[Rfam]
Nucleotides: 147
Stems, first nucleotide, its partner, number of pairs: 012131003018045003046127006056067001068112003076088004091106004
Number, partner (000 for none) and nucleotide at each position: 001000g002000c003000g004000g005000g006000c007000c008000g009000a010000u011000c012131g013130c014129c015000g016000a017000g018045u019044c020043c021000g022000c023000g024000c025000g026000g027000c028000g029000c030000a031000g032000c033000a034000g035000g036000c037000g038000u039000c040000g041000c042000g043020g044019g045018a046127g047126c048125c049124g050123g051122g052000g053000a054000c055000c056067c057000a058000a059000c060000a061000g062000u063000c064000u065000c066000a067056g068112g069111g070110g071000u072000g073000a074000a075000u076088c077087c078086g079085c080000c081000a082000c083000g084000u085079g086078c087077g088076g089000u090000a091106g092105g093104g094103c095000g096000u097000c098000u099000c100000c101000u102000g103094g104093c105092c106091c107000g108000a109000a110070c111069c112068c113000g114000u115000c116000a117000g118000c119000u120000a121000a122051c123050c124049c125048g126047g127046u128000a129014g130013g131012c132000a133000g134000c135000c136000g137000a138000g139000g140000g141000a142000g143000a144000a145000a146000g147000g
The family of this 147-nucleotide RNA sequence from Bailinhaonella thermotolerans is "c-di-AMP riboswitch aptamer (ydaO/yuaA leader)". NCBI's taxonomy places the organism under Bacteria, Actinomycetes, Streptosporangiales, Streptosporangiaceae, Bailinhaonella.